RNA sequence: CUCUUAUCCAGACAGGCAGAGGGAACGGCCCGAUGAUGCCUGGGCAACCGGCCCCCAGUAGGGACGCGGUGCCAACUCCGACGGCGUACGUGCCGAGAGAUGAGAG
Numbered sequence: 001c002u003c004u005u006a007u008c009c010a011g012a013c014a015g016g017c018a019g020a021g022g023g024a025a026c027g028g029c030c031c032g033a034u035g036a037u038g039c040c041u042g043g044g045c046a047a048c049c050g051g052c053c054c055c056c057a058g059u060a061g062g063g064a065c066g067c068g069g070u071g072c073c074a075a076c077u078c079c080g081a082c083g084g085c086g087u088a089c090g091u092g093c094c095g096a097g098a099g100a101u102g103a104g105a106g
Base pairs, nucleotide, nucleotide: 001106002105003104004103005102006101007100008099013042014041015040016039017038021031022030023029026080027079028078043073044072045071046070048069049068051065053063054062077098082095083094084093085092086091
RNA: SAM riboswitch aptamer (S box leader)